[Rfam]
RNA sequence: GGAGAAGCAAAGUGAUGAGCAAUCGUGGCUGGAGCCCCAAAGAGGCACAAGUGUGUGUGCGUGUGCCUGUGUGUGUCCGUGUCCUUUGUGCAUGCACACGUGUGCUUGAGAGCAUGGAUAUGUGUGAUUGGUCGUUAGGGACCUAGCUAUGUGCCAUCUUCUGGGCUAUGACAGUCAAACUGAUAAGAUCUGAUUGCUUC
Number, nucleotide and partner (000 for none) at each position: 001g000002g000003a000004g200005a199006a198007g197008c196009a195010a194011a000012g000013u000014g190015a189016u188017g000018a000019g000020c000021a000022a000023u000024c000025g000026u177027g176028g175029c174030u173031g172032g000033a000034g000035c000036c110037c000038c108039a107040a000041a000042g000043a103044g000045g101046c100047a000048c000049a000050a000051g000052u000053g097054u096055g095056u094057g093058u092059g091060c090061g000062u000063g000064u000065g086066c000067c000068u000069g082070u081071g080072u079073g078074u000075g000076u000077c000078c073079g072080u071081g070082u069083c000084c000085u000086u065087u000088g000089u000090g060091c059092a058093u057094g056095c055096a054097c053098a000099c000100g046101u045102g000103u043104g000105c000106u000107u039108g038109a000110g036111a000112g125113c124114a123115u122116g000117g000118a000119u000120a000121u000122g115123u114124g113125u112126g000127a000128u146129u145130g144131g142132u141133c140134g000135u000136u000137a000138g000139g000140g133141a132142c131143c000144u130145a129146g128147c000148u170149a169150u168151g167152u000153g166154c165155c164156a000157u000158c000159u000160u000161c000162u000163g000164g155165g154166c153167u151168a150169u149170g148171a000172c031173a030174g029175u028176c027177a026178a000179a000180c000181u000182g000183a000184u000185a000186a000187g000188a016189u015190c014191u000192g000193a000194u010195u009196g008197c007198u006199u005200c004
Record summary: The record is a 200-nucleotide RNA from Nannospalax galili, which matches "Small nucleolar RNA ZL1" in Rfam. Its family is annotated with nucleolus and RNA processing in the Gene Ontology. Host gene TRRAP. Predicted target U2@U47. Only GU-rich region is homologous to other known snoRNAs. Conserved in vertebrates. NCBI's taxonomy places the organism under Eukaryota, Teleostomi, Amniota, Boreoeutheria, Nannospalax. The family has 5 seed sequences and 300 matches in Rfam 15.1.